[Rfam]
RNA sequence: GGUGGUUCUUGGGUGACGCACCCCAGAACCAGAGAGGAGGAGGCCUGAUUCUAGGGUGUCACCCAAGAACUGCC
Numbered sequence: 001g002g003u004g005g006u007u008c009u010u011g012g013g014u015g016a017c018g019c020a021c022c023c024c025a026g027a028a029c030c031a032g033a034g035a036g037g038a039g040g041a042g043g044c045c046u047g048a049u050u051c052u053a054g055g056g057u058g059u060c061a062c063c064c065a066a067g068a069a070c071u072g073c074c
Base pairs, nucleotide, nucleotide: 002073003072005070006069007068008067009066010065011064012063013062014061015060016059017058020057021056022055023054025052026051027050028049030047031046032045
This 74-nucleotide RNA from Myotis davidii belongs to the Rfam family "mir-9223 microRNA precursor family". Lineage of the source: Eukaryota > Opisthokonta > Teleostomi > Tetrapoda > Myotis. Its family is annotated with miRNA-mediated post-transcriptional gene silencing and RISC complex in the Gene Ontology. Rfam 15.1 lists 14,641 matches to the family in 28 species.